[Rfam]
RNA sequence: CUGCUUGCGCGGGUAUCGGGUUCUCCCUAUCUUGUUCAGUGCAGGAGGAGCUUGCUUCUUGGCUAUGGCGAUAAACGGAACGUAGAAUAAGCGUUGUGGACCCGGGGGCGGUACCCGGCGUCUCCACCAUUGAUCCUCCCGGUUUUUGCGGGAGUGUGGGGACGAAACAGGCUCGACACGCGCGGUAAAGGCGUUUCUUUUGCCCGGCAUUGUACCACCGUCAUCGGGCUAAAUCACAAGUGCCAACGAUAACUCAGAGGUGCUCGCUGUCGCUGCAUAAGCGAUAAGCGCGGUUCGGGAGGGCACCGGGCAACAGAAGCCCUCCCA
Number, nucleotide and partner (000 for none) at each position: 001c000002u000003g000004c000005u000006u000007g000008c000009g000010c000011g000012g000013g000014u000015a000016u000017c000018g000019g000020g000021u000022u000023c000024u000025c000026c000027c000028u000029a000030u000031c000032u000033u000034g000035u000036u000037c000038a000039g000040u000041g063042c062043a000044g000045g000046a000047g000048g000049a000050g000051c000052u000053u000054g000055c000056u000057u000058c000059u000060u000061g000062g042063c041064u000065a000066u000067g204068g203069c202070g201071a200072u000073a000074a000075a000076c000077g197078g196079a195080a194081c193082g192083u191084a000085g000086a000087a000088u000089a000090a000091g000092c182093g181094u180095u000096g179097u178098g177099g000100a000101c000102c118103c117104g116105g115106g114107g000108g000109c000110g000111g000112u000113a000114c106115c105116c104117g103118g102119c164120g163121u162122c161123u160124c159125c158126a000127c000128c000129a000130u000131u000132g000133a000134u000135c000136c000137u000138c000139c000140c000141g000142g000143u000144u000145u000146u000147u000148g000149c000150g000151g000152g000153a000154g000155u000156g000157u000158g125159g124160g123161g122162a121163c120164g119165a000166a000167a000168c000169a000170g000171g000172c000173u000174c000175g000176a000177c098178a097179c096180g094181c093182g092183c000184g000185g000186u000187a000188a000189a000190g000191g083192c082193g081194u080195u079196u078197c077198u000199u000200u071201u070202g069203c068204c067205c220206g219207g218208c000209a000210u231211u000212g229213u000214a000215c227216c226217a000218c207219c206220g205221u000222c000223a000224u000225c000226g216227g215228g000229c212230u000231a210232a000233a000234u000235c000236a000237c000238a000239a000240g000241u000242g000243c000244c000245a000246a000247c000248g000249a000250u000251a000252a000253c000254u000255c000256a000257g000258a000259g000260g000261u000262g000263c000264u000265c000266g000267c000268u000269g000270u000271c000272g000273c000274u000275g000276c000277a000278u000279a000280a000281g000282c000283g000284a000285u000286a000287a000288g000289c000290g000291c308292g307293g306294u305295u000296c000297g000298g324299g323300a000301g321302g320303g000304c000305a294306c293307c292308g291309g000310g000311c000312a000313a000314c000315a000316g000317a000318a000319g000320c302321c301322c000323u299324c298325c000326c000327a000

Rfam assigns this 327-nucleotide RNA from Acetobacter estunensis to the family "Alphaproteobacteria transfer-messenger RNA". The organism belongs to Acetobacter, within Bacteria. The family's RNA type in Rfam is non-coding RNA gene. Bacterial tmRNA, also known as 10Sa RNA or SsrA, is named for its dual tRNA and mRNA-like properties. Its role is to liberate the mRNA from a stalled ribosome. To accomplish this part of the tmRNA is used as a reading frame that ends in a translation stop signal.